The record is a 160-nucleotide RNA sequence from Pseudoflavonifractor sp. An184, which matches "M-box riboswitch aptamer (ykoK leader)" in Rfam. Its family is annotated with regulation of gene expression and response to magnesium ion in the Gene Ontology. The match comes from Rfam's covariance-model search (95 bits).

[Rfam]
RNA sequence: CCGCGGACCCGGUAGGUAAGGCUACCACAGGGAUAUGGGCCGCUGCCGCAAAAGGAUGGAGACAUCCUGCGCUGGUUUGAACAGGGCCUGUCGAAUGCAAGGCAGGCUCUAAUGUGGCUUCACCGCCCUGUGAUGCUAAAGCUCGGACGGCGGCCCAUGU
Numbered sequence: 001c002c003g004c005g006g007a008c009c010c011g012g013u014a015g016g017u018a019a020g021g022c023u024a025c026c027a028c029a030g031g032g033a034u035a036u037g038g039g040c041c042g043c044u045g046c047c048g049c050a051a052a053a054g055g056a057u058g059g060a061g062a063c064a065u066c067c068u069g070c071g072c073u074g075g076u077u078u079g080a081a082c083a084g085g086g087c088c089u090g091u092c093g094a095a096u097g098c099a100a101g102g103c104a105g106g107c108u109c110u111a112a113u114g115u116g117g118c119u120u121c122a123c124c125g126c127c128c129u130g131u132g133a134u135g136c137u138a139a140a141g142c143u144c145g146g147a148c149g150g151c152g153g154c155c156c157a158u159g160u
Base pairs, nucleotide, nucleotide: 005156006155008153009152011148013100015143016142017141020137021136022135026132027131028130029129030128031127032126039118040117041116042115043114045077046075047074048072049071055066056065057064058063084109085108086107087106090103091102092101